[Rfam]
RNA sequence: CCGCGGCGUCAUUGGGGAGUAGCCUUCCUUCCGCGCGAAGGAGCUUGCAUCAACAUACUUGCCGGCCACGGCAUGGUGCAAGCGGGUCCCGUGCUUGGCAAGACCUUUGACCACGAACACCACCGGACAGGCCGGGGAUGUGUCGUGGUCAUUCGUCUUUUUGUCCGGCCUGUGGAGACUU
Numbered sequence: 001c002c003g004c005g006g007c008g009u010c011a012u013u014g015g016g017g018a019g020u021a022g023c024c025u026u027c028c029u030u031c032c033g034c035g036c037g038a039a040g041g042a043g044c045u046u047g048c049a050u051c052a053a054c055a056u057a058c059u060u061g062c063c064g065g066c067c068a069c070g071g072c073a074u075g076g077u078g079c080a081a082g083c084g085g086g087u088c089c090c091g092u093g094c095u096u097g098g099c100a101a102g103a104c105c106u107u108u109g110a111c112c113a114c115g116a117a118c119a120c121c122a123c124c125g126g127a128c129a130g131g132c133c134g135g136g137g138a139u140g141u142g143u144c145g146u147g148g149u150c151a152u153u154c155g156u157c158u159u160u161u162u163g164u165c166c167g168g169c170c171u172g173u174g175g176a177g178a179c180u181u
Stems, first nucleotide, its partner, number of pairs: 027041003043083010060073005084180002087177001089175005
A member of the RNA family "Manganese Mn2+ riboswitch aptamer (yybP-ykoY)" from Parazoarcus communis, 181 nucleotides long.
It scores 92 bits against the family's covariance model.
Lineage of the source: Bacteria > Pseudomonadati > Betaproteobacteria > Zoogloeaceae > Parazoarcus communis.
About the family: This RNA was originally discovered in E. coli during a large scale screen and was named SraF. The family was later found to exist upstream of related families of protein genes in many bacteria, including the the yybP and ykoK genes in B. subtilis. The specific functions of these proteins are unknown, but this structured RNA element may be involved in their genetic regulation as a riboswitch.